This 86-nucleotide RNA from Marinomonas piezotolerans belongs to the Rfam family "sRNA-Xcc1". Rfam 15.1 lists 421 matches to the family in 299 species. NCBI's taxonomy places the organism under Bacteria, Pseudomonadati, Oceanospirillales, Oceanospirillaceae, Marinomonas. By type it is a small RNA. For this family Rfam cites "sRNA-Xcc1, an integron-encoded transposon- and plasmid-transferred trans-acting sRNA, is under the positive control of the key virulence regulators HrpG and HrpX of Xanthomonas campestris pathovar campestris" (Chen et al., RNA Biol, 2011). It scores 61 bits against the family's covariance model.
[Rfam]
RNA sequence: GUCGGGAGGGCAGUAGUCAUACAAUACCUUCGGGGAAAGCUACUCGCGGUUUCUUACAGCCGUUCUGAACCUCCUGACACCCAAUC
Number, nucleotide and partner (000 for none) at each position: 001g078002u077003c076004g075005g074006g073007a072008g071009g070010g000011c000012a044013g043014u042015a041016g000017u039018c000019a000020u000021a000022c000023a000024a000025u000026a000027c034028c033029u000030u000031c000032g000033g028034g027035g000036a000037a000038a000039g017040c000041u015042a014043c013044u012045c000046g063047c062048g061049g060050u059051u000052u000053c000054u000055u000056a000057c000058a000059g050060c049061c048062g047063u046064u000065c000066u000067g000068a000069a000070c009071c008072u007073c006074c005075u004076g003077a002078c001079a000080c000081c000082c000083a000084a000085u000086c000